[Rfam]
RNA sequence: UAGUUGGUGAAAGUCCAAUCCGAGUAAUAACUCAGUAGCUCGGUAGUUGACAGACUUGGUAGGGAGAAAUUCCUAUUUUGUAACUGUGACAAAGUCACCAAAGUGUGGCGAUUAAAACUACAGAUCCGCAGGA
Number, nucleotide and partner (000 for none) at each position: 001u000002a000003g000004u000005u000006g000007g000008u000009g000010a000011a000012a000013g000014u000015c000016c000017a000018a000019u000020c043021c042022g041023a040024g039025u000026a000027a000028u000029a000030a000031c000032u000033c000034a000035g000036u000037a000038g000039c024040u023041c022042g021043g020044u000045a000046g000047u000048u000049g000050a087051c086052a085053g084054a000055c080056u000057u000058g077059g076060u075061a000062g000063g000064g071065a070066g000067a000068a000069a000070u065071u064072c000073c000074u000075a060076u059077u058078u000079u000080g055081u000082a000083a000084c053085u052086g051087u050088g000089a000090c000091a000092a000093a000094g109095u108096c107097a106098c105099c000100a000101a000102a000103g000104u000105g098106u097107g096108g095109c094110g000111a000112u000113u128114a000115a000116a000117a000118c000119u000120a000121c000122a000123g000124a000125u000126c000127c000128g113129c000130a000131g000132g000133a000
Shown here is a 133-nucleotide sequence from Acetohalobium arabaticum, a member of the family "Group II catalytic intron D1-D4-4". Group II introns are found in rRNA, tRNA and mRNA of organelles in fungi, plants and protists, and also in mRNA in bacteria. Taxonomically the source falls in Acetohalobium arabaticum (Bacteria, Bacillati, Bacillota, Halobacteroidaceae). It scores 51 bits against the family's covariance model. For this family Rfam cites "The ins and outs of group II introns" (Bonen and Vogel, Trends Genet, 2001). The pairing is the family consensus, mapped onto this sequence.